[Rfam]
RNA sequence: AUGAAGUCCAAAGCAGCUGCUGGCCACUGCACAAGAUUAGAUACAGCUUACUCUUGUGCGUGUGACAGCGGCUAUUGCGGGCAUUUCAUAGUCGGCG
Numbered sequence: 001a002u003g004a005a006g007u008c009c010a011a012a013g014c015a016g017c018u019g020c021u022g023g024c025c026a027c028u029g030c031a032c033a034a035g036a037u038u039a040g041a042u043a044c045a046g047c048u049u050a051c052u053c054u055u056g057u058g059c060g061u062g063u064g065a066c067a068g069c070g071g072c073u074a075u076u077g078c079g080g081g082c083a084u085u086u087c088a089u090a091g092u093c094g095g096c097g
Base pairs, nucleotide, nucleotide: 006082007081008080009079012076015073016072017071018070019069020068021067022066024064025062026061028060029059030058031057032056033055035053036052
Rfam assigns this 97-nucleotide RNA from Galleria mellonella to the family "mir-210 microRNA precursor family". Lineage of the source: Eukaryota > Glossata > Heteroneura > Ditrysia > Galleria. For this family Rfam cites "Kaposi's sarcoma-associated herpesvirus expresses an array of viral microRNAs in latently infected cells" (Cai et al., Proc Natl Acad Sci U S A, 2005).